Shown here is an 81-nucleotide RNA from Salmo trutta, a member of the family "mir-26 microRNA precursor family". The family has 82 seed sequences and 2,251 matches in Rfam 15.1.

RNA sequence: CUGCCACCCAGUACAAGUAAUCAUGAAUAGGCCAACCAGGAUACACACAGCCUAUCCUGGAUUACUUGAACUGGGUCACAA
Numbered sequence: 001c002u003g004c005c006a007c008c009c010a011g012u013a014c015a016a017g018u019a020a021u022c023a024u025g026a027a028u029a030g031g032c033c034a035a036c037c038a039g040g041a042u043a044c045a046c047a048c049a050g051c052c053u054a055u056c057c058u059g060g061a062u063u064a065c066u067u068g069a070a071c072u073g074g075g076u077c078a079c080a081a
Stems, first nucleotide, its partner, number of pairs: 002080002007075006014068009025057001027055006
The family's consensus secondary structure was predicted with RNAalifold. Its family is annotated with RISC complex and miRNA-mediated post-transcriptional gene silencing in the Gene Ontology.